This 367-nucleotide RNA sequence from Marinilactibacillus sp. 15R belongs to the Rfam family "Bacterial RNase P class B". Rfam describes the family as follows. Ribonuclease P (RNase P) is a ubiquitous endoribonuclease, found in archaea, bacteria and eukarya as well as chloroplasts and mitochondria. Its best characterised activity is the generation of mature 5'-ends of tRNAs by cleaving the 5'-leader elements of precursor-tRNAs. Cellular RNase Ps are ribonucleoproteins. RNA from bacterial RNase Ps retains its catalytic activity in the absence of the protein subunit, i.e. it is a ribozyme. A search with the family's covariance model found it, with a score of 333 bits. The organism belongs to Marinilactibacillus, within Bacteria. Pairs were carried over by alignment from the consensus structure, which is taken from published work. Clan: RNaseP clan.
RNA sequence: AAUUACGGAUAAUCGCGCAUUGUUUUCAAUGUGAGGAAAGUCCAUGCUCACACAAACUGAGAUGUUUGUAGUGUUCGUGCGCAGCGAAAAAAUAAGCUGCGGCUCCAUUAAUGGAUGACGGCAGAAAAAAAGGCUAAGGCUUAGCUAUGCCUGAGUAUUCUUGAAAGUGCCACAGUGACGAAGCAGCAGGGGAAACGCUGCUGGUGGAACGCGGUAAACCCCUCGAGUGAGCAACCCAAACAUAUGGUAGGGGCACUUUUCUCCUGGAAAUGAACAGAGAGAAGAGGCAAUUUCGAUUGCAGACAGAUGAUUAUCUCGGAGAAAACAUUCCUGAUCGUUUUCUCUAGACAGAACAUGGCUUAUAGUA
Numbered sequence: 001a002a003u004u005a006c007g008g009a010u011a012a013u014c015g016c017g018c019a020u021u022g023u024u025u026u027c028a029a030u031g032u033g034a035g036g037a038a039a040g041u042c043c044a045u046g047c048u049c050a051c052a053c054a055a056a057c058u059g060a061g062a063u064g065u066u067u068g069u070a071g072u073g074u075u076c077g078u079g080c081g082c083a084g085c086g087a088a089a090a091a092a093u094a095a096g097c098u099g100c101g102g103c104u105c106c107a108u109u110a111a112u113g114g115a116u117g118a119c120g121g122c123a124g125a126a127a128a129a130a131a132g133g134c135u136a137a138g139g140c141u142u143a144g145c146u147a148u149g150c151c152u153g154a155g156u157a158u159u160c161u162u163g164a165a166a167g168u169g170c171c172a173c174a175g176u177g178a179c180g181a182a183g184c185a186g187c188a189g190g191g192g193a194a195a196c197g198c199u200g201c202u203g204g205u206g207g208a209a210c211g212c213g214g215u216a217a218a219c220c221c222c223u224c225g226a227g228u229g230a231g232c233a234a235c236c237c238a239a240a241c242a243u244a245u246g247g248u249a250g251g252g253g254c255a256c257u258u259u260u261c262u263c264c265u266g267g268a269a270a271u272g273a274a275c276a277g278a279g280a281g282a283a284g285a286g287g288c289a290a291u292u293u294c295g296a297u298u299g300c301a302g303a304c305a306g307a308u309g310a311u312u313a314u315c316u317c318g319g320a321g322a323a324a325a326c327a328u329u330c331c332u333g334a335u336c337g338u339u340u341u342c343u344c345u346a347g348a349c350a351g352a353a354c355a356u357g358g359c360u361u362a363u364a365g366u367a
Stems, first nucleotide, its partner, number of pairs: 004367003007363001008315007016033006038361003042358005047231005052069006075226003079222001080101006102119001103117001104115004120221002123161004131152004138146003167219002169215003184203006191196001235252003256286007287300005318345009